Rfam assigns this 250-nucleotide RNA from Nocardioides jishulii to the family "raiA RNA".
Rfam classes the family as a riboswitch.
[Rfam]
RNA sequence: UCCGUUCGGGUCCGUGGUUGCGUCGUCCGGGACGUCUCGGACGACAAGCCGAUGCCAGUCGCAGGCAAAACGGCCCACGUAAGGCGUGCCCCCCUCGCGGGGCCGCUGAUCACGGUGCGGCUUAGAAGUAAGUCCUGCCUCGGCCCCGUCGUCAGACACGACGGAGGUCGGGAGAAGGUGGGUAGUGGCACUGAGCUGCGAGAGCCUCAGCAGGCGACUGUGGGGACGAAGACCAGGUCGGCCGGACGGA
Numbered sequence: 001u002c003c004g005u006u007c008g009g010g011u012c013c014g015u016g017g018u019u020g021c022g023u024c025g026u027c028c029g030g031g032a033c034g035u036c037u038c039g040g041a042c043g044a045c046a047a048g049c050c051g052a053u054g055c056c057a058g059u060c061g062c063a064g065g066c067a068a069a070a071c072g073g074c075c076c077a078c079g080u081a082a083g084g085c086g087u088g089c090c091c092c093c094c095u096c097g098c099g100g101g102g103c104c105g106c107u108g109a110u111c112a113c114g115g116u117g118c119g120g121c122u123u124a125g126a127a128g129u130a131a132g133u134c135c136u137g138c139c140u141c142g143g144c145c146c147c148g149u150c151g152u153c154a155g156a157c158a159c160g161a162c163g164g165a166g167g168u169c170g171g172g173a174g175a176a177g178g179u180g181g182g183u184a185g186u187g188g189c190a191c192u193g194a195g196c197u198g199c200g201a202g203a204g205c206c207u208c209a210g211c212a213g214g215c216g217a218c219u220g221u222g223g224g225g226a227c228g229a230a231g232a233c234c235a236g237g238u239c240g241g242c243c244g245g246a247c248g249g250a
Stems, first nucleotide, its partner, number of pairs: 001250009012241003015235005052221003055065001057122007074115002079110001082107002086103002113228001134214005139172007176207004185199005
Description: The source organism's lineage runs through Bacteria, Bacillati, Actinomycetes, Nocardioidaceae and Nocardioides.